[Rfam]
RNA: MIR8565 microRNA precursor family
RNA sequence: CCGCCACCCAUGUGUGUAGGACCCCAAAGGAUCGCCAUUAAAUUUGGCACAGAUGUCUAGAAAAGUUAUCACAUGGGUGUGAGACUUGACAUUUCUAUAGAUUCAUGCCAAAUUUAAUGGUGAUCCUUUGGGGUCCUACACACAUGGGUGGGGG
Numbered sequence: 001c002c003g004c005c006a007c008c009c010a011u012g013u014g015u016g017u018a019g020g021a022c023c024c025c026a027a028a029g030g031a032u033c034g035c036c037a038u039u040a041a042a043u044u045u046g047g048c049a050c051a052g053a054u055g056u057c058u059a060g061a062a063a064a065g066u067u068a069u070c071a072c073a074u075g076g077g078u079g080u081g082a083g084a085c086u087u088g089a090c091a092u093u094u095c096u097a098u099a100g101a102u103u104c105a106u107g108c109c110a111a112a113u114u115u116a117a118u119g120g121u122g123a124u125c126c127u128u129u130g131g132g133g134u135c136c137u138a139c140a141c142a143c144a145u146g147g148g149u150g151g152g153g154g
Stems, first nucleotide, its partner, number of pairs: 002153001004151010015140014030125003034121016052103003056099001058097006065090004069082005